The record is an 89-nucleotide sequence from Geosmithia morbida, which matches "tRNA" in Rfam. Pairs were carried over by alignment from the consensus structure, which is taken from published work. The family's RNA type in Rfam is transfer RNA.
[Rfam]
RNA sequence: CUCGAAAUCGUCUAGUUGGUUUAUGGCGCCAGACUGUAACUGAAUAGUGUAUUAUCUGGAUGUCCGCGGUUCGAAUCCGCGUUUCGAGA
Numbered sequence: 001c002u003c004g005a006a007a008u009c010g011u012c013u014a015g016u017u018g019g020u021u022u023a024u025g026g027c028g029c030c031a032g033a034c035u036g037u038a039a040c041u042g043a044a045u046a047g048u049g050u051a052u053u054a055u056c057u058g059g060a061u062g063u064c065c066g067c068g069g070u071u072c073g074a075a076u077c078c079g080c081g082u083u084u085c086g087a088g089a
Base pairs, nucleotide, nucleotide: 001088002087003086004085005084006083007082010027011026012025029059030058031057032056033055065081066080067079068078069077